[Rfam]
RNA sequence: UGGCACCUACGGGGGCCUUCACUUCAGGGGCUGCGCGCCAGCCCCGCCAAGCAAACGGAAGACAGAAA
Numbered sequence: 001u002g003g004c005a006c007c008u009a010c011g012g013g014g015g016c017c018u019u020c021a022c023u024u025c026a027g028g029g030g031c032u033g034c035g036c037g038c039c040a041g042c043c044c045c046g047c048c049a050a051g052c053a054a055a056c057g058g059a060a061g062a063c064a065g066a067a068a
Stems, first nucleotide, its partner, number of pairs: 002017003006014003027045007
RNA: L2-Alphaproteobacteria ribosomal protein leader
Organism: Loktanella atrilutea